[Rfam]
RNA sequence: UUGCAGACGGCAGCGCCAUUUUCAGAGCUAUCAGUGUGAAAGUGAUCAUAGCUCUUUAAAUGGUACUGCUGUAGGUAU
Numbered sequence: 001u002u003g004c005a006g007a008c009g010g011c012a013g014c015g016c017c018a019u020u021u022u023c024a025g026a027g028c029u030a031u032c033a034g035u036g037u038g039a040a041a042g043u044g045a046u047c048a049u050a051g052c053u054c055u056u057u058a059a060a061u062g063g064u065a066c067u068g069c070u071g072u073a074g075g076u077a078u
Stems, first nucleotide, its partner, number of pairs: 002077003007072003011068003015064007024055008
RNA: mir-458 microRNA precursor family